Rfam assigns this 138-nucleotide sequence from Saimiri boliviensis to the family "Small nucleolar RNA SNORA51". Lineage of the source: Eukaryota > Eumetazoa > Deuterostomia > Craniata > Saimiri boliviensis. Its family is annotated with nucleolus and RNA processing in the Gene Ontology. The base pairs follow the family's consensus structure, which was predicted with PFOLD. Rfam describes the family as follows. ACA51 is a member of the H/ACA class of snoRNA that guide the sites of modification of uridines to pseudouridines.
RNA sequence: GGCCUCCUGGUGCUUACCAAGGUUGUCUUCUUAUAUUGACUGAAGCAGAGAAAGAGGAAGCAGAGUGAACCUAUACCAUGUGCACCUUAGGCCAGGUCCUGCGUGUACCUAGUCUCUAUUGUAAAUGCAGGGAAAUGU
Numbered sequence: 001g002g003c004c005u006c007c008u009g010g011u012g013c014u015u016a017c018c019a020a021g022g023u024u025g026u027c028u029u030c031u032u033a034u035a036u037u038g039a040c041u042g043a044a045g046c047a048g049a050g051a052a053a054g055a056g057g058a059a060g061c062a063g064a065g066u067g068a069a070c071c072u073a074u075a076c077c078a079u080g081u082g083c084a085c086c087u088u089a090g091g092c093c094a095g096g097u098c099c100u101g102c103g104u105g106u107a108c109c110u111a112g113u114c115u116c117u118a119u120u121g122u123a124a125a126u127g128c129a130g131g132g133a134a135a136u137g138u
Base pairs, nucleotide, nucleotide: 002061003060005058006057007056008055020041021040025036026035028033074130077127078126079125089115090114092112094110095109096108097107